[Rfam]
RNA sequence: CUUGAAACAAUAUCCUGAUGCUGCCUGAGUGCCUCUUACAGACUCCAGCAUCAGUGAUUUUGUUGCUGG
Dot-bracket structure: .....(((((.((((((((((((......................))))))))).))).))))).....
This 69-nucleotide sequence from Silurus meridionalis belongs to the Rfam family "mir-338 microRNA precursor family".
Pairs were carried over by alignment from the consensus structure, which was predicted with RNAalifold.
It scores 83 bits against the family's covariance model.
Rfam links the family to the GO terms RISC complex and miRNA-mediated post-transcriptional gene silencing.
The literature on the family includes a 2005 paper in Genes Dev by Chen et al., "The developmental miRNA profiles of zebrafish as determined by small RNA cloning".